[Rfam]
RNA sequence: GAAGCGGGUAGCCCGCUCCCGGCCCACCGGGCCGGGGUAAGACGGGUGCUCCAGAUCCGCAAGGGUCUGGUGCC
Numbered sequence: 001g002a003a004g005c006g007g008g009u010a011g012c013c014c015g016c017u018c019c020c021g022g023c024c025c026a027c028c029g030g031g032c033c034g035g036g037g038u039a040a041g042a043c044g045g046g047u048g049c050u051c052c053a054g055a056u057c058c059g060c061a062a063g064g065g066u067c068u069g070g071u072g073c074c
Stems, first nucleotide, its partner, number of pairs: 011047005018036008051070008
A member of the RNA family "Transposase-2 RNA" from [Actinomadura] parvosata, 74 nucleotides long. It scores 52 bits against the family's covariance model.